[Rfam]
RNA sequence: GCCUUUUCUCCCCAGACUUGCUGGCGUGGGCUACAGAGAAGCCUGCAAGCUCUGAGGGAAAGACC
Number, nucleotide and partner (000 for none) at each position: 001g065002c000003c000004u062005u000006u000007u000008c000009u058010c057011c056012c000013c054014a053015g052016a051017c000018u000019u047020g046021c000022u000023g043024g042025c041026g034027u033028g000029g000030g000031c000032u000033a027034c026035a000036g000037a000038g000039a000040a000041g025042c024043c023044u000045g000046c020047a019048a000049g000050c000051u016052c015053u014054g013055a000056g011057g010058g009059a000060a000061a000062g004063a000064c000065c001
RNA: MAT2A 3'UTR stem loop A